[Rfam]
RNA sequence: ACGGCUGCGGGCGGCGGCGACACACGUGCCCGCGGCACCGGACAGAACACCGUGUCUCGGAACAUUCGGGGCACUUCUGGGCGUU
Numbered sequence: 001a002c003g004g005c006u007g008c009g010g011g012c013g014g015c016g017g018c019g020a021c022a023c024a025c026g027u028g029c030c031c032g033c034g035g036c037a038c039c040g041g042a043c044a045g046a047a048c049a050c051c052g053u054g055u056c057u058c059g060g061a062a063c064a065u066u067c068g069g070g071g072c073a074c075u076u077c078u079g080g081g082c083g084u085u
Stems, first nucleotide, its partner, number of pairs: 004036010015026002052074008

The family of this 85-nucleotide RNA from Streptomyces sp. PsTaAH-124 is "nrdJ RNA". The sequence is in the family's curated seed alignment.